[Rfam]
RNA sequence: AUGUCUCCUAGAGUUCCUCUGAGCACUUCAUUGGGAAUACAUUUUUCUAUGAUGUUACCCACUGAAGUGUUUGGGGGAACUCCCGGACCCAU
Numbered sequence: 001a002u003g004u005c006u007c008c009u010a011g012a013g014u015u016c017c018u019c020u021g022a023g024c025a026c027u028u029c030a031u032u033g034g035g036a037a038u039a040c041a042u043u044u045u046u047c048u049a050u051g052a053u054g055u056u057a058c059c060c061a062c063u064g065a066a067g068u069g070u071u072u073g074g075g076g077g078a079a080c081u082c083c084c085g086g087a088c089c090c091a092u
Stems, first nucleotide, its partner, number of pairs: 006087003011082010022072002024069007032061004
The record is a 92-nucleotide sequence from Eutrema salsugineum, which matches "mir-395 microRNA precursor family" in Rfam. The family's consensus secondary structure was predicted with PFOLD. mir-395 was identified in both Arabidopsis thaliana and Oryza sativa computationally and was later experimentally verified. mir-395 is thought to target mRNAs coding for ATP sulphurylases. The mature sequence is excised from the 3' arm of the hairpin.